[Rfam]
A member of the RNA family "c-di-GMP-I riboswitch aptamer" from Paenibacillus sp. FSL R5-0912, 96 nucleotides long. Lineage of the source: Bacteria > Bacillati > Bacilli > Paenibacillaceae > Paenibacillus. About the family: GEMM was predicted in a large-scale screen for bacterial structured RNA regulatory elements.
RNA sequence: AUAAUAAUAGGGCACACUCGUUGAAAAACGGGGUCGCAAAACUACAGGGGCUAUCACAUGUCCAAUUUGGAUAUGUUAUGCCAGCCAGUUACCGAA
Numbered sequence: 001a002u003a004a005u006a007a008u009a010g011g012g013c014a015c016a017c018u019c020g021u022u023g024a025a026a027a028a029c030g031g032g033g034u035c036g037c038a039a040a041a042c043u044a045c046a047g048g049g050g051c052u053a054u055c056a057c058a059u060g061u062c063c064a065a066u067u068u069g070g071a072u073a074u075g076u077u078a079u080g081c082c083a084g085c086c087a088g089u090u091a092c093c094g095a096a
Stems, first nucleotide, its partner, number of pairs: 012037002017032006040090004047086002049082003056076008